RNA sequence: AAAGUUUCCUACGCCACAGCAAUGGACUGGUUCAUAGCCGUUUGCUUCGCCUUU
Numbered sequence: 001a002a003a004g005u006u007u008c009c010u011a012c013g014c015c016a017c018a019g020c021a022a023u024g025g026a027c028u029g030g031u032u033c034a035u036a037g038c039c040g041u042u043u044g045c046u047u048c049g050c051c052u053u054u
Base pairs, nucleotide, nucleotide: 001054002053003052008049011046013045014044016041017040019038020037022035023034024033025032026031
RNA: Editing element of GABA-3 exon 9
Organism: Oryzias melastigma